[Rfam]
RNA sequence: GGGUUGUGCUCAGUAGCAUGCAGCCUGAAGAAAUGGCUCCUGCUUACACCAGACCCAACAGGAAUCUGGUUAUUUGACAAGGGGAACACAAAACUCCGUGGCCUUUCCUCUGAACAAGUACCCUACAACG
Numbered sequence: 001g002g003g004u005u006g007u008g009c010u011c012a013g014u015a016g017c018a019u020g021c022a023g024c025c026u027g028a029a030g031a032a033a034u035g036g037c038u039c040c041u042g043c044u045u046a047c048a049c050c051a052g053a054c055c056c057a058a059c060a061g062g063a064a065u066c067u068g069g070u071u072a073u074u075u076g077a078c079a080a081g082g083g084g085a086a087c088a089c090a091a092a093a094c095u096c097c098g099u100g101g102c103c104u105u106u107c108c109u110c111u112g113a114a115c116a117a118g119u120a121c122c123c124u125a126c127a128a129c130g
Base pairs, nucleotide, nucleotide: 002056003055005053007051008050013045015044016043017042018041020039023037024036025035068123069122071120075116076115081111083104084103087100088099089098091095

The record is a 130-nucleotide RNA sequence from Bos taurus, which matches "Small nucleolar RNA SNORA11" in Rfam. Rfam describes the family as follows. U107 (SNORA11) is a member of the H/ACA class of snoRNAs that guide the sites of modification of uridines to pseudouridines. The organism belongs to Bos, within Eukaryota. For this family Rfam cites "A novel experimental approach for systematic identification of box H/ACA snoRNAs from eukaryotes" (Gu et al., Nucleic Acids Res, 2005). Gene Ontology terms of the family: nucleolus and RNA processing.